Shown here is a 96-nucleotide sequence from Afipia broomeae, a member of the family "Repression of heat shock gene expression (ROSE) element". Rfam links the family to the GO terms regulation of translation and response to temperature stimulus. Pairs were carried over by alignment from the consensus structure, which is taken from published work. Rfam describes the family as follows. This family represents a 5' UTR cis-regulatory element found in heat shock mRNAs and is known as the ROSE (repression of heat shock gene expression) element. The ROSE element is a negative regulator of heat shock gene expression. The secondary structure is thought to be regulated by temperature. This regulation blocks access to the ribosome binding site under normal conditions. NCBI's taxonomy places the organism under Bacteria, Pseudomonadati, Pseudomonadota, Hyphomicrobiales, Afipia broomeae.

Nucleotides: 096
Base pairs, nucleotide, nucleotide: 001023002022003021004020005019006018008017009016030055031054032053033052034051035050036049037048038047039046056094057093058092059091060090061089063087064086065085066084068082069081071080072079073078
Number, partner (000 for none) and nucleotide at each position: 001023c002022c003021g004020g005019g006018u007000g008017c009016c010000c011000u012000u013000c014000g015000g016009g017008g018006g019005c020004c021003c022002g023001g024000a025000g026000g027000a028000g029000a030055c031054g032053g033052g034051c035050a036049u037048c038047g039046g040000a041000g042000g043000u044000g045000u046039u047038c048037g049036g050035u051034g052033c053032u054031c055030g056094c057093u058092u059091a060090u061089a062000u063087c064086c065085a066084a067000c068082u069081u070000g071080c072079u073078c074000a075000g076000u077000g078073g079072a080071g081069g082068a083000u084066u085065u086064g087063g088000c089061u090060a091059u092058g093057a094056g095000a096000a
Background:
The family has 13 seed sequences and 381 matches in Rfam 15.1.